Source information
The record is a 268-nucleotide RNA sequence from Hibiscus trionum, which matches "Early nodulin 40" in Rfam. The family's RNA type in Rfam is non-coding RNA gene. The source organism's lineage runs through Eukaryota, Streptophyta, Streptophytina, Spermatophyta and Hibiscus.
RNA sequence: AAGGAACUGAUAUCAUUCAUCCAUGGGGUCUUAAUAAAAGCAUAUAGGGCGGAGGGUUCGGUUUCACUCGAUCCUCACCCUCCGCCACCAAAAAUUGUUUGCCAUGCUUAGACCGAUAGCUCAGCCUAAACAGCAAACACCGGGCGCAUGGGGAUCGAUCCUAUAGAGGGAAGAUAGGCAUAGCUAUCUGCUGUGGAGGGUUUUUGGCUAAUGCAAUGGCAAAUCGGCAAGUCACGAGAAGGGCAAUGAACUCAUGUCGAUGAGUCUU
Numbered sequence: 001a002a003g004g005a006a007c008u009g010a011u012a013u014c015a016u017u018c019a020u021c022c023a024u025g026g027g028g029u030c031u032u033a034a035u036a037a038a039a040g041c042a043u044a045u046a047g048g049g050c051g052g053a054g055g056g057u058u059c060g061g062u063u064u065c066a067c068u069c070g071a072u073c074c075u076c077a078c079c080c081u082c083c084g085c086c087a088c089c090a091a092a093a094a095u096u097g098u099u100u101g102c103c104a105u106g107c108u109u110a111g112a113c114c115g116a117u118a119g120c121u122c123a124g125c126c127u128a129a130a131c132a133g134c135a136a137a138c139a140c141c142g143g144g145c146g147c148a149u150g151g152g153g154a155u156c157g158a159u160c161c162u163a164u165a166g167a168g169g170g171a172a173g174a175u176a177g178g179c180a181u182a183g184c185u186a187u188c189u190g191c192u193g194u195g196g197a198g199g200g201u202u203u204u205u206g207g208c209u210a211a212u213g214c215a216a217u218g219g220c221a222a223a224u225c226g227g228c229a230a231g232u233c234a235c236g237a238g239a240a241g242g243g244c245a246a247u248g249a250a251c252u253c254a255u256g257u258c259g260a261u262g263a264g265u266c267u268u
Stems, first nucleotide, its partner, number of pairs: 047086002097224006116212002250265004
Dot-bracket structure: ..............................................((....................................))..........((((((.............((.............................................................................................))......)))))).........................((((........))))...